[Rfam]
RNA sequence: GACGUCCAGGGCAAAUCCGGCGAAAGCCGGAGACGCAAAGCUUCCGGGCUACCCAGUACAGCAGCGCUGUGCUGCAUGCCAGCGGGGCCGCCGCAA
Numbered sequence: 001g002a003c004g005u006c007c008a009g010g011g012c013a014a015a016u017c018c019g020g021c022g023a024a025a026g027c028c029g030g031a032g033a034c035g036c037a038a039a040g041c042u043u044c045c046g047g048g049c050u051a052c053c054c055a056g057u058a059c060a061g062c063a064g065c066g067c068u069g070u071g072c073u074g075c076a077u078g079c080c081a082g083c084g085g086g087g088c089c090g091c092c093g094c095a096a
Stems, first nucleotide, its partner, number of pairs: 003093002011036002016031006034082001040088003044085003047080003
RNA: c-di-GMP-I-GGC riboswitch aptamer